Overview
The family of this 98-nucleotide sequence from Trichechus manatus is "mir-544 microRNA precursor family". The family has 16 seed sequences and 10,750 matches in Rfam 15.1. It scores 78 bits against the family's covariance model. Pairs were carried over by alignment from the consensus structure, which was predicted with RNAalifold. NCBI's taxonomy places the organism under Eukaryota, Deuterostomia, Sarcopterygii, Dipnotetrapodomorpha, Trichechus manatus. A reference for the family is Chiang et al. (2010), "Mammalian microRNAs: experimental evaluation of novel and previously annotated genes", Genes Dev.
RNA sequence: AUCACCUGGAAAUCUUGUUAAAGUGCAGAUUCUGAUUCAGUAAGUCUAGGGUGGAGUCUGAGAUUCUGCAUUUGUAACAAGCUCCUAGGUAAUGCUGA
Numbered sequence: 001a002u003c004a005c006c007u008g009g010a011a012a013u014c015u016u017g018u019u020a021a022a023g024u025g026c027a028g029a030u031u032c033u034g035a036u037u038c039a040g041u042a043a044g045u046c047u048a049g050g051g052u053g054g055a056g057u058c059u060g061a062g063a064u065u066c067u068g069c070a071u072u073u074g075u076a077a078c079a080a081g082c083u084c085c086u087a088g089g090u091a092a093u094g095c096u097g098a
Stems, first nucleotide, its partner, number of pairs: 004090002009085001011083001014081007021073003025069005031063003